[Rfam]
Shown here is a 130-nucleotide RNA from Streptomyces lincolnensis, a member of the family "Streptomyces RNA 5676". It scores 127 bits against the family's covariance model. A reference for the family is Vockenhuber et al. (2011), "Deep sequencing-based identification of small non-coding RNAs in Streptomyces coelicolor", RNA Biol. Pairs were carried over by alignment from the consensus structure.

RNA sequence: AGAUGAGAGAUACACCCCGUCCGCGGGAAACCGCGGGCGAUCUCAGGUCGGGGCCUCCCCAGCUUCGAUCUGGUCGUGCCCUCGCGCACACAAACGGAGCCUCCGGCUCCGGAUCUCCUCACCGAUCGGA
Numbered sequence: 001a002g003a004u005g006a007g008a009g010a011u012a013c014a015c016c017c018c019g020u021c022c023g024c025g026g027g028a029a030a031c032c033g034c035g036g037g038c039g040a041u042c043u044c045a046g047g048u049c050g051g052g053g054c055c056u057c058c059c060c061a062g063c064u065u066c067g068a069u070c071u072g073g074u075c076g077u078g079c080c081c082u083c084g085c086g087c088a089c090a091c092a093a094a095c096g097g098a099g100c101c102u103c104c105g106g107c108u109c110c111g112g113a114u115c116u117c118c119u120c121a122c123c124g125a126u127c128g129g130a
Stems, first nucleotide, its partner, number of pairs: 004121004009117002018039009043073005049067006076089004095111007122129002